[Rfam]
RNA sequence: CCUGGCAAUGAUGACCCACUUGCCCUCACUGAGAACAAAGUUCGGUAAUGAGAACCUUUGUUGACUCGAGUUCUGAGCCAGG
Numbered sequence: 001c002c003u004g005g006c007a008a009u010g011a012u013g014a015c016c017c018a019c020u021u022g023c024c025c026u027c028a029c030u031g032a033g034a035a036c037a038a039a040g041u042u043c044g045g046u047a048a049u050g051a052g053a054a055c056c057u058u059u060g061u062u063g064a065c066u067c068g069a070g071u072u073c074u075g076a077g078c079c080a081g082g
Stems, first nucleotide, its partner, number of pairs: 001082006
A member of the RNA family "Small nucleolar RNA SNORD103/SNORD85" from Tupaia belangeri, 82 nucleotides long. A reference for the family is Huttenhofer et al. (2001), "RNomics: an experimental approach that identifies 201 candidates for novel, small, non-messenger RNAs in mouse", EMBO J. The base pairs follow the family's consensus structure.